[Rfam]
RNA sequence: UGGCGCCCAACGUGGGGCUUGGAUACUGGGGUACAACGUGAGGGUCUGACGACAGAAGAAAAAGGGGUGUGCACCCGCUCAAAUAAUUCGGAGAUGCCGCGGGAGCCUGCCAUGGCCGAGCCGAAGGUAAGUUGGUCGUUCAAUCAUGGGGCAAGAAUUAAGUCAGCAUCAGAUUUAUGUGAUACAGUUAAGAGAAGCUCUACAGGCAAGAGGAGUAAAGGUUAAAACUGAGGAUUUAUUUCAUUUCUUUGAUUUUGUAAAGGACAUUUGUCCCU
Numbered sequence: 001u002g003g004c005g006c007c008c009a010a011c012g013u014g015g016g017g018c019u020u021g022g023a024u025a026c027u028g029g030g031g032u033a034c035a036a037c038g039u040g041a042g043g044g045u046c047u048g049a050c051g052a053c054a055g056a057a058g059a060a061a062a063a064g065g066g067g068u069g070u071g072c073a074c075c076c077g078c079u080c081a082a083a084u085a086a087u088u089c090g091g092a093g094a095u096g097c098c099g100c101g102g103g104a105g106c107c108u109g110c111c112a113u114g115g116c117c118g119a120g121c122c123g124a125a126g127g128u129a130a131g132u133u134g135g136u137c138g139u140u141c142a143a144u145c146a147u148g149g150g151g152c153a154a155g156a157a158u159u160a161a162g163u164c165a166g167c168a169u170c171a172g173a174u175u176u177a178u179g180u181g182a183u184a185c186a187g188u189u190a191a192g193a194g195a196a197g198c199u200c201u202a203c204a205g206g207c208a209a210g211a212g213g214a215g216u217a218a219a220g221g222u223u224a225a226a227a228c229u230g231a232g233g234a235u236u237u238a239u240u241u242c243a244u245u246u247c248u249u250u251g252a253u254u255u256u257g258u259a260a261a262g263g264a265c266a267u268u269u270g271u272c273c274c275u
Base pairs, nucleotide, nucleotide: 006031007030008029012026013025014024037051038050039049087126088125090122091121096117098114099113101111102110132154133153134152137151139150140149141148142147159202160201162198163197210250211249212248213247214246215245219237220236221235222234223233260275262273263272264271265270
A member of the RNA family "Mason-Pfizer monkey virus packaging signal" from Nannospalax galili, 275 nucleotides long. Taxonomically the source falls in Nannospalax (Eukaryota, Metazoa, Euteleostomi, Eutheria). The match comes from Rfam's covariance-model search (166 bits).